[Rfam]
RNA sequence: GGGAUGUGACGAGAGGUCAAUUCUUGCAAAUAAAAUAUGCGAGAAGGGUGUCCGCCUAGCCUGGUUAUGACACAGAUUCAACCGUGUCACUCCCUAUUUCACCAAUUUGAUCCC
Numbered sequence: 001g002g003g004a005u006g007u008g009a010c011g012a013g014a015g016g017u018c019a020a021u022u023c024u025u026g027c028a029a030a031u032a033a034a035a036u037a038u039g040c041g042a043g044a045a046g047g048g049u050g051u052c053c054g055c056c057u058a059g060c061c062u063g064g065u066u067a068u069g070a071c072a073c074a075g076a077u078u079c080a081a082c083c084g085u086g087u088c089a090c091u092c093c094c095u096a097u098u099u100c101a102c103c104a105a106u107u108u109g110a111u112c113c114c
Base pairs, nucleotide, nucleotide: 001114002113003112004111015103016102017101023043024042025041026040027039046092047091048090049089050088051086062084063083064082065081